[Rfam]
RNA sequence: GUGGCCGGACCGCCUAAUCCCGGCCACAUGCGACCGCCGGGAACCGGGGAACCAAAAGGCACACGCCGGGCCCGUACCGGCGGUCGCCGACCCCCCGGGGUGAAUCCGAGAGGGAGGCAUCGCGAUCCUCCGCGACCAGUCACUCGGUAGGGCCACUCCCGCCCGAACCCGUCAGCUAACCCGGUAGGCGUCCGAGGAGAGGAGCU
Numbered sequence: 001g002u003g004g005c006c007g008g009a010c011c012g013c014c015u016a017a018u019c020c021c022g023g024c025c026a027c028a029u030g031c032g033a034c035c036g037c038c039g040g041g042a043a044c045c046g047g048g049g050a051a052c053c054a055a056a057a058g059g060c061a062c063a064c065g066c067c068g069g070g071c072c073c074g075u076a077c078c079g080g081c082g083g084u085c086g087c088c089g090a091c092c093c094c095c096c097g098g099g100g101u102g103a104a105u106c107c108g109a110g111a112g113g114g115a116g117g118c119a120u121c122g123c124g125a126u127c128c129u130c131c132g133c134g135a136c137c138a139g140u141c142a143c144u145c146g147g148u149a150g151g152g153c154c155a156c157u158c159c160c161g162c163c164c165g166a167a168c169c170c171g172u173c174a175g176c177u178a179a180c181c182c183g184g185u186a187g188g189c190g191u192c193c194g195a196g197g198a199g200a201g202g203a204g205c206u
Stems, first nucleotide, its partner, number of pairs: 011190004018042007043185006053097001098170003106147004150164004
c-di-AMP riboswitch aptamer (ydaO/yuaA leader): a 206-nucleotide RNA from Sphaerisporangium rubeum.
Taxonomically the source falls in Sphaerisporangium (Bacteria, Actinomycetota, Streptosporangiales, Streptosporangiaceae).
It scores 62 bits against the family's covariance model.